The record is a 132-nucleotide sequence from Aphis craccivora, which matches "U11 spliceosomal RNA" in Rfam.
The base pairs follow the family's consensus structure, which is taken from published work.
Lineage of the source: Eukaryota > Opisthokonta > Eumetazoa > Aphididae > Aphis.

RNA sequence: CAAAAGGGUGUCUUCCGCUUGCAUGGAACAUCAGAUCCUUAGAGAUCCGGUGAGGUAUGGCCAUCAAUACAUACCUGACACAAAAUUUUUUUAACUGCGGGCAGUUGGCAACCACAGAGUGCCGGCGCCCGC
Numbered sequence: 001c002a003a004a005a006g007g008g009u010g011u012c013u014u015c016c017g018c019u020u021g022c023a024u025g026g027a028a029c030a031u032c033a034g035a036u037c038c039u040u041a042g043a044g045a046u047c048c049g050g051u052g053a054g055g056u057a058u059g060g061c062c063a064u065c066a067a068u069a070c071a072u073a074c075c076u077g078a079c080a081c082a083a084a085a086u087u088u089u090u091u092u093a094a095c096u097g098c099g100g101g102c103a104g105u106u107g108g109c110a111a112c113c114a115c116a117g118a119g120u121g122c123c124g125g126c127g128c129c130c131g132c
Stems, first nucleotide, its partner, number of pairs: 008081005013028005029052004034047004053076007099130004104126005111120002113117001